[Rfam]
RNA sequence: GGAGUAGGCCAGAUGAUCGCUGUCUGACCCAGGUCAGAGGGAGGAAAGUCCGGGCUCCAUAGGGCAGGGCGCUGGGUAAUCACCAGCGGGGGCGACCCCAGGGAAAGUGCCACAGAGAGAAGUCCGCCCGUUUCGACGGGUAAGGGUGAAAGGGUGAGGUAAGAGCUCACCGGGUCCGGUGGUGACACCGGAUGCCAGGUAAACCCCGCCAGGAGCAAGGCCGAAUAGGGAGGCGUCAAGGGCGGCCCGCCCGUGCCUCCGGGUUGGCUGCUUGAGGUCACCGGUAACGGUGAUCCUAGAGGAAUGAUCAUCAUCUGCCGUCGGGUAACCACCGGCAGAAACAGAACCCGGCUUACGGCCUGCUCCAACC
Number, nucleotide and partner (000 for none) at each position: 001g366002g365003a364004g363005u362006a361007g360008g359009c358010c357011a000012g312013a311014u310015g309016a308017u307018c306019g000020c041021u040022g000023u038024c037025u036026g035027a034028c033029c000030c000031a000032g000033g028034u027035c026036a025037g024038a023039g000040g021041g020042a000043g000044g000045a000046a354047a353048g352049u000050c351051c350052g349053g348054g347055c215056u214057c213058c212059a000060u000061a000062g248063g247064g246065c245066a000067g000068g210069g209070c208071g207072c086073u085074g084075g083076g000077u000078a000079a000080u000081c000082a000083c075084c074085a073086g072087c101088g099089g098090g097091g096092g000093c000094g000095a000096c091097c090098c089099c088100a000101g087102g206103g205104a000105a000106a000107g204108u203109g200110c199111c198112a000113c000114a000115g000116a000117g000118a000119g000120a000121a000122g000123u000124c145125c144126g141127c140128c139129c138130g137131u136132u000133u000134c000135g000136a131137c130138g129139g128140g127141u126142a000143a000144g125145g124146g000147u000148g000149a000150a000151a000152g000153g171154g170155u169156g168157a167158g166159g000160u000161a000162a000163g000164a000165g000166c158167u157168c156169a155170c154171c153172g000173g195174g193175u192176c191177c190178g189179g188180u187181g186182g000183u000184g000185a000186c181187a180188c179189c178190g177191g176192a175193u174194g000195c173196c000197a000198g111199g110200u109201a000202a000203a108204c107205c103206c102207c071208g070209c069210c068211a000212g058213g057214a056215g055216c000217a000218a000219g269220g268221c267222c266223g000224a000225a000226u000227a000228g000229g260230g259231a258232g257233g256234c255235g000236u000237c000238a000239a000240g252241g251242g250243c249244g000245g065246c064247c063248c062249g243250c242251c241252c240253g000254u000255g234256c233257c232258u231259c230260c229261g000262g000263g000264u000265u000266g222267g221268c220269u219270g000271c000272u000273u000274g000275a000276g295277g294278u293279c292280a291281c290282c289283g288284g000285u000286a000287a000288c283289g282290g281291u280292g279293a278294u277295c276296c000297u000298a000299g000300a000301g000302g000303a000304a000305u000306g018307a017308u016309c015310a014311u013312c012313a000314u000315c000316u000317g000318c000319c000320g000321u000322c000323g000324g000325g000326u000327a000328a000329c000330c000331a000332c000333c000334g000335g000336c000337a000338g000339a000340a000341a000342c000343a000344g000345a000346a000347c054348c053349c052350g051351g050352c048353u047354u046355a000356c000357g010358g009359c008360c007361u006362g005363c004364u003365c002366c001367a000368a000369c000370c000
The record is a 370-nucleotide RNA from Trichlorobacter lovleyi, which matches "Bacterial RNase P class A" in Rfam. Lineage of the source: Bacteria > Pseudomonadati > Desulfuromonadia > Trichlorobacter > Trichlorobacter lovleyi. It is one of the family's seed sequences. The base pairs follow the family's consensus structure, which is taken from published work. By type it is a ribozyme.